Source information:
Eukaryotic large subunit ribosomal RNA: a 492-nucleotide part of an RNA from Dothidotthia symphoricarpi.

RNA sequence: CCUGCCGAAGUUUCCCUUAGGAUAGCAGUAACGUAUUUAGUUUUAUGAGGUAAAGCAAAUAAUUAGAGGCCUAGGGGUUGAAACAACCUUCACCUAUUCUUAAACUUUAAAUAUGUAAGAAGUCUUUGUUACUUAAUUAAACGUAGACACUUGAAUGUACCGUUACUAGUGGGCCAUUUUUGGUAAGCAGAACUGGCAAUGCGGGAUGAACCAAACGCAGGGUUAAGGUGCCAGAAUACACGCUUAUUAGACACCACAAAAGGUGUUAGUUCAUCUAGACAGCAGGACGGUGGCUAUAGAAGUUGGAAUCCGCUAAGGAGUGUGUAACAACUCACCUGCUAAAUAAACUAGCCCUGAAAAUGGAUGGCGCUCAAGCGUGUUACCCAUACCCCGCCGCCGGGGCAAGAUUUAAGCCCUGGCAAGUAGGCAGGCGUGGAGGCUCGUGACGAAGCCUUGGGGGUAACCCCAGGUAGAACAGCCUCUAGUGCAGAU
Dot-bracket structure: ((((((....(.(((....))).)..(((((((.......(((((((.....(((....(((..(.(((..(.((((.(.....).)))).)))).)..)))..)).).....))))))).((((.((((.........)))).))))............))))))).....((((.(((((.....))))).)))).....((......))....((.((.(...(((......(.(..(((.................(((.(((((((.((.......(((((.(((...((.........))...)))(...)(...((......)).).)))))...)).))))))))))...................)))..)))))...).)).)).((((((((.........)))))))).....))))))(.((((((((.((......((....(((....)))...))...))))))))))..).....